[Rfam]
RNA sequence: GAGAUGUGAUGAGUAACAAAUUGGUCCGUGUUUCUGAUUAACCGUGACUGAGAAUUUAUUAACCAAACUCUGAUCUC
Numbered sequence: 001g002a003g004a005u006g007u008g009a010u011g012a013g014u015a016a017c018a019a020a021u022u023g024g025u026c027c028g029u030g031u032u033u034c035u036g037a038u039u040a041a042c043c044g045u046g047a048c049u050g051a052g053a054a055u056u057u058a059u060u061a062a063c064c065a066a067a068c069u070c071u072g073a074u075c076u077c
Base pairs, nucleotide, nucleotide: 001077002076003075004074

Annotation
Shown here is a 77-nucleotide sequence from Arabidopsis thaliana, a member of the family "Small nucleolar RNA SNORD18". A search with the family's covariance model found it, with a score of 42 bits.